[Rfam]
RNA sequence: AAUGACUGCACGUCACCGCAGCGGGAGCGGGGGAACCAGGUAAGUGCCGUGCCGCGGAUUUCCGUGGCCGGCUAGGGGUGAAGCCAUGUUCCGCGGCGCGGUCCCCCGCGCCGACGGAAGCGCGACGGAACCGGAAGGAACCGCCGCGGACAUGGCCGGGCAGCUCUCGCCCGAAUCCGACAGCUCACCUCGCAGGCGUAGGAGAGGACGCAU
Number, nucleotide and partner (000 for none) at each position: 001a000002a000003u026004g000005a000006c000007u000008g000009c000010a000011c000012g000013u000014c000015a000016c000017c000018g000019c000020a000021g000022c000023g000024g000025g000026a003027g193028c192029g191030g190031g189032g188033g000034a000035a000036c000037c075038a000039g000040g000041u000042a000043a000044g000045u000046g000047c000048c000049g000050u000051g000052c000053c000054g000055c000056g000057g000058a000059u000060u000061u000062c000063c000064g000065u000066g000067g000068c000069c000070g000071g000072c000073u000074a000075g037076g178077g177078g176079u000080g000081a000082a000083g000084c155085c154086a153087u152088g151089u150090u149091c148092c000093g000094c000095g000096g000097c000098g000099c000100g000101g000102u000103c000104c000105c000106c000107c000108g000109c000110g000111c000112c000113g000114a000115c000116g000117g000118a000119a000120g000121c000122g000123c000124g000125a000126c000127g000128g000129a000130a000131c000132c000133g000134g000135a000136a000137g000138g000139a000140a000141c000142c000143g000144c000145c000146g000147c000148g091149g090150a089151c088152a087153u086154g085155g084156c000157c000158g172159g171160g170161c169162a000163g000164c000165u000166c000167u000168c000169g161170c160171c159172c158173g000174a000175a000176u078177c077178c076179g000180a000181c000182a000183g000184c000185u000186c000187a000188c032189c031190u030191c029192g028193c027194a000195g000196g000197c000198g000199u000200a000201g000202g000203a000204g000205a000206g000207g000208a000209c000210g000211c000212a000213u000

Record summary
A member of the RNA family "c-di-AMP riboswitch aptamer (ydaO/yuaA leader)" from Streptomyces chumphonensis, 213 nucleotides long. It scores 44 bits against the family's covariance model. Rfam describes the family as follows. This family represents a conserved RNA structure found upstream of the ydaO and yuaA genes in Bacillus subtilis and related genes in other bacteria. NCBI's taxonomy places the organism under Bacteria, Actinomycetota, Kitasatosporales, Streptomycetaceae, Streptomyces. Its family is annotated with cyclic-di-AMP binding and regulation of gene expression in the Gene Ontology.